[Rfam]
RNA sequence: GUGACUCCCAGGGACUGCCUUAGGAGAAAGUUUCUGGAAUGUCAGAACUUCCAGAAACUUUCUCCUAAGGCAGUCCCUGGAGUCAC
Numbered sequence: 001g002u003g004a005c006u007c008c009c010a011g012g013g014a015c016u017g018c019c020u021u022a023g024g025a026g027a028a029a030g031u032u033u034c035u036g037g038a039a040u041g042u043c044a045g046a047a048c049u050u051c052c053a054g055a056a057a058c059u060u061u062c063u064c065c066u067a068a069g070g071c072a073g074u075c076c077c078u079g080g081a082g083u084c085a086c
Base pairs, nucleotide, nucleotide: 001086002085003084004083005082006081008080009079010078011077012076013075014074015073016072017071018070019069020068021067022066023065024064025063026062027061028060029059030058031057032056033055034054035053036052037051038050039049
RNA: mir-3199 microRNA precursor family
Organism: Homo sapiens